[Rfam]
RNA sequence: CAAUGCAUAUGAUGCUACAAACAACAUUCUCUUAUACUACACACUGAAAUAAAUGUGGACAAAAUUACUCUGCUUAUUUUCUGAAGCAUUG
Numbered sequence: 001c002a003a004u005g006c007a008u009a010u011g012a013u014g015c016u017a018c019a020a021a022c023a024a025c026a027u028u029c030u031c032u033u034a035u036a037c038u039a040c041a042c043a044c045u046g047a048a049a050u051a052a053a054u055g056u057g058g059a060c061a062a063a064a065u066u067a068c069u070c071u072g073c074u075u076a077u078u079u080u081c082u083g084a085a086g087c088a089u090u091g
Stems, first nucleotide, its partner, number of pairs: 003089004

This 91-nucleotide RNA sequence from Prunus avium belongs to the Rfam family "Small nucleolar RNA R16". Rfam 15.1 lists 884 matches to the family in 222 species. By type it is a C/D-box small nucleolar RNA. A search with the family's covariance model found it, with a score of 50 bits. For this family Rfam cites "Purified box C/D snoRNPs are able to reproduce site-specific 2'-O-methylation of target RNA in vitro" (Galardi et al., Mol Cell Biol, 2002). NCBI's taxonomy places the organism under Eukaryota, Viridiplantae, Streptophytina, Amygdaloideae, Prunus. Rfam links the family to the GO terms nucleolus and RNA processing.